Source information: Rfam assigns this 60-nucleotide RNA to the family "Small nucleolar RNA SNORD75". Rfam 15.1 lists 767 matches to the family in 616 species. The literature on the family includes a 1998 paper in Mol Cell Biol by Smith and Steitz, "Classification of gas5 as a multi-small-nucleolar-RNA (snoRNA) host gene and a member of the 5'-terminal oligopyrimidine gene family reveals common features of snoRNA host genes". Rfam links the family to the GO terms nucleolus and RNA processing. The family's consensus secondary structure was predicted with RNAalifold.
RNA sequence: AGCCUGUGAUGCUUUAAGAGUAGUGGACAGAAGGGAUUUCUGAAAUUCUAUUCUGAGGCU
Number, nucleotide and partner (000 for none) at each position: 001a060002g059003c058004c057005u000006g000007u000008g000009a000010u000011g000012c000013u000014u000015u000016a000017a000018g000019a000020g000021u000022a000023g000024u000025g000026g000027a000028c000029a000030g000031a000032a000033g000034g000035g000036a000037u000038u000039u000040c000041u000042g000043a000044a000045a000046u000047u000048c000049u000050a000051u000052u000053c000054u000055g000056a000057g004058g003059c002060u001